Record summary
Rfam assigns this 120-nucleotide sequence from Dialister succinatiphilus to the family "FMN riboswitch aptamer (RFN element)". Taxonomically the source falls in Dialister succinatiphilus (Bacteria, Bacillota, Veillonellales, Dialister). Rfam links the family to the GO term FMN binding.

[Rfam]
RNA sequence: GAAUCUCUUCAGGGCGGGGUGCAAGUCCCCACCGGUGGUAAAGCCCACGAACCUCAUCAUAGAGGUAGGUCUGGUGAAAUUCCAGAGCCGACGGUAUAGUCCGGAUGAAAGAAGAGUGGA
Numbered sequence: 001g002a003a004u005c006u007c008u009u010c011a012g013g014g015c016g017g018g019g020u021g022c023a024a025g026u027c028c029c030c031a032c033c034g035g036u037g038g039u040a041a042a043g044c045c046c047a048c049g050a051a052c053c054u055c056a057u058c059a060u061a062g063a064g065g066u067a068g069g070u071c072u073g074g075u076g077a078a079a080u081u082c083c084a085g086a087g088c089c090g091a092c093g094g095u096a097u098a099g100u101c102c103g104g105a106u107g108a109a110a111g112a113a114g115a116g117u118g119g120a
Stems, first nucleotide, its partner, number of pairs: 005116006017029003031100002033090002035048004043088002051066003070086005092103003